[Rfam]
RNA sequence: CGACCCCCCGCGGGAGAGUGUCCGGUCGCCCCAAGCGGGUGCCGGGCCGCCGAAGGAGCAAGCCUCCCCGCCAAUCUCUCAGGCCACCGAACCGCCGGGGUGAG
Numbered sequence: 001c002g003a004c005c006c007c008c009c010g011c012g013g014g015a016g017a018g019u020g021u022c023c024g025g026u027c028g029c030c031c032c033a034a035g036c037g038g039g040u041g042c043c044g045g046g047c048c049g050c051c052g053a054a055g056g057a058g059c060a061a062g063c064c065u066c067c068c069c070g071c072c073a074a075u076c077u078c079u080c081a082g083g084c085c086a087c088c089g090a091a092c093c094g095c096c097g098g099g100g101u102g103a104g
Base pairs, nucleotide, nucleotide: 006099007098008097010095011094012093013092020047021046022045023044024043025042026041049084050083051082052080053079056078057077058076062071063070
Shown here is a 104-nucleotide RNA sequence from Nakamurella multipartita, a member of the family "Glycine riboswitch aptamer".
About the family: This family represents the bacterial glycine riboswitch. Glycine riboswitches usually consist of two metabolite-binding aptamers domains with similar structures in tandem. The aptamers cooperatively bind glycine to regulate the expression of downstream genes. In Bacillus subtilis, this riboswitch is found upstream of the gcvT operon which controls glycine degradation.